[Rfam]
RNA sequence: AUCUGCCUGGCUCCCUGGAUGCCAAGUAAGAAGCUUGUCGACAUGUGUCGAUUUCUCAUUAGUUGGCAUCAGAGGAGCCAUGCAGAU
Numbered sequence: 001a002u003c004u005g006c007c008u009g010g011c012u013c014c015c016u017g018g019a020u021g022c023c024a025a026g027u028a029a030g031a032a033g034c035u036u037g038u039c040g041a042c043a044u045g046u047g048u049c050g051a052u053u054u055c056u057c058a059u060u061a062g063u064u065g066g067c068a069u070c071a072g073a074g075g076a077g078c079c080a081u082g083c084a085g086a087u
Stems, first nucleotide, its partner, number of pairs: 001087006008080007016072001018070007027061003

mir-160 microRNA precursor family: an 87-nucleotide RNA sequence from Citrus unshiu. The base pairs follow the family's consensus structure, which was predicted with PFOLD. A reference for the family is Rhoades et al. (2002), "Prediction of plant microRNA targets", Cell.